[Rfam]
Shown here is a 114-nucleotide sequence from Listeria kieliensis, a member of the family "SAM riboswitch aptamer (S box leader)".

RNA sequence: CUCUUAUCAAGAGCGGCUGAGGGACUGGCCCUGCGACGCCCGGCAACCUAACUUUUUUAAAGUGAAGGUGCUAAUUCCAGCAAACUGACAUGACGUUAGUUUGAGAGAUAAGAG
Dot-bracket structure: ((((((((....(.(((...(((.[[[[)))......))))((((.((..(((.......)))...))))))...(]]]](((((((((.....)))))))))..)))))))))
On this family, see Grundy and Henkin, Mol Microbiol 1998: "The S box regulon: a new global transcription termination control system for methionine and cysteine biosynthesis genes in gram-positive bacteria".